[Rfam]
RNA sequence: GUGCACUUUUAAGGUUGACAGAGGGCUUUAACAGACCAACACAGAGCAUAAAAGAAGUCUCCAUAAAACCCAGAGAAGAGAUUGUAAAACUCCUGUCUGGAGUCCCAGGUGGAGGAGGUGAA
Numbered sequence: 001g002u003g004c005a006c007u008u009u010u011a012a013g014g015u016u017g018a019c020a021g022a023g024g025g026c027u028u029u030a031a032c033a034g035a036c037c038a039a040c041a042c043a044g045a046g047c048a049u050a051a052a053a054g055a056a057g058u059c060u061c062c063a064u065a066a067a068a069c070c071c072a073g074a075g076a077a078g079a080g081a082u083u084g085u086a087a088a089a090c091u092c093c094u095g096u097c098u099g100g101a102g103u104c105c106c107a108g109g110u111g112g113a114g115g116a117g118g119u120g121a122a
Stems, first nucleotide, its partner, number of pairs: 002050002006046001008045003014040004021032001059114005070100005076094001078092003082089002